[Rfam]
Annotation: A member of the RNA family "Lysine riboswitch aptamer" from Priestia filamentosa, 177 nucleotides long.
RNA sequence: GGUGAAGAUAGAGGUGCGGAUUUUAAGAGUAUAUAGCAGGAGGAAAAUGAGUUCCGUUGAUUGUUAUAGAAAGGGAAAUCUGCCGAAGUGGAAGCUAGCUCAUCAUAGCUUUUGCUGGUUUUGCAUUGAAUAAAUGUAAGACUGUCAAGAUCAAAAUCUUGGAGGGCUAUCUCACAC
Numbered sequence: 001g002g003u004g005a006a007g008a009u010a011g012a013g014g015u016g017c018g019g020a021u022u023u024u025a026a027g028a029g030u031a032u033a034u035a036g037c038a039g040g041a042g043g044a045a046a047a048u049g050a051g052u053u054c055c056g057u058u059g060a061u062u063g064u065u066a067u068a069g070a071a072a073g074g075g076a077a078a079u080c081u082g083c084c085g086a087a088g089u090g091g092a093a094g095c096u097a098g099c100u101c102a103u104c105a106u107a108g109c110u111u112u113u114g115c116u117g118g119u120u121u122u123g124c125a126u127u128g129a130a131u132a133a134a135u136g137u138a139a140g141a142c143u144g145u146c147a148a149g150a151u152c153a154a155a156a157u158c159u160u161g162g163a164g165g166g167c168u169a170u171c172u173c174a175c176a177c
Stems, first nucleotide, its partner, number of pairs: 006172006016083009032068008087116011117143011145162007
Riboswitches are metabolite binding domains within certain messenger RNAs that serve as precision sensors for their corresponding targets.